[Rfam]
RNA sequence: AGUGAUCGAAGAGGUUGCAACUAAGACUACUAGAUUGACCGAGUCCCUGUGAGGACGGUGACGUUAAUUGAACAGCAAGGUUGCCGAAGUUUAUCAACUAUCACAGUAGUCGAUAGGCUGGGGCGUAGCUUAAGAGGCUGCGAACUGUCACAAGUCAAUGCUUGUGGGGCGCUUUCGACAAUG
Numbered sequence: 001a002g003u004g005a006u007c008g009a010a011g012a013g014g015u016u017g018c019a020a021c022u023a024a025g026a027c028u029a030c031u032a033g034a035u036u037g038a039c040c041g042a043g044u045c046c047c048u049g050u051g052a053g054g055a056c057g058g059u060g061a062c063g064u065u066a067a068u069u070g071a072a073c074a075g076c077a078a079g080g081u082u083g084c085c086g087a088a089g090u091u092u093a094u095c096a097a098c099u100a101u102c103a104c105a106g107u108a109g110u111c112g113a114u115a116g117g118c119u120g121g122g123g124c125g126u127a128g129c130u131u132a133a134g135a136g137g138c139u140g141c142g143a144a145c146u147g148u149c150a151c152a153a154g155u156c157a158a159u160g161c162u163u164g165u166g167g168g169g170c171g172c173u174u175u176c177g178a179c180a181a182u183g
Stems, first nucleotide, its partner, number of pairs: 006178004010173002017084006025076001033069007088119008097110003120146002124142007148167007
Description: Rfam assigns this 183-nucleotide sequence from Leuconostocaceae bacterium R-53105 to the family "Lysine riboswitch aptamer". The organism belongs to Lactobacillaceae, within Bacteria.